[Rfam]
RNA: mir-2363 microRNA precursor family
RNA sequence: CUAAGAAAUAUUCCUUGACCAAGUUGAAACCUAUUCUCAUUAAUUUCAACUUGGUCAAGGAAUAUUUCUUAG
Dot-bracket structure: (((((((((((((((((((((((((((((...((....))...)))))))))))))))))))))))))))))